[Rfam]
RNA sequence: GAUAAAGAGAGAGAGCUUCCUUGAGUCCAUUCACAGGUCGUGAUAUGAUCCAAUUAGCUUCCGACUCAUUCAUCCAAAUACCGAGUCACCAAAAUUCGAGCAAGACUCGUUAAAUGAAUGAAUGAAGCGGUAGACAAAUUGGGUCAUUGAUUCUCUAUGAUUGGACUGAAGGGAGCUCCCUCUAUAUUU
Numbered sequence: 001g002a003u004a005a006a007g008a009g010a011g012a013g014a015g016c017u018u019c020c021u022u023g024a025g026u027c028c029a030u031u032c033a034c035a036g037g038u039c040g041u042g043a044u045a046u047g048a049u050c051c052a053a054u055u056a057g058c059u060u061c062c063g064a065c066u067c068a069u070u071c072a073u074c075c076a077a078a079u080a081c082c083g084a085g086u087c088a089c090c091a092a093a094a095u096u097c098g099a100g101c102a103a104g105a106c107u108c109g110u111u112a113a114a115u116g117a118a119u120g121a122a123u124g125a126a127g128c129g130g131u132a133g134a135c136a137a138a139u140u141g142g143g144u145c146a147u148u149g150a151u152u153c154u155c156u157a158u159g160a161u162u163g164g165a166c167u168g169a170a171g172g173g174a175g176c177u178c179c180c181u182c183u184a185u186a187u188u189u
Stems, first nucleotide, its partner, number of pairs: 013178008024167006036155001058133002061130003067124004075116001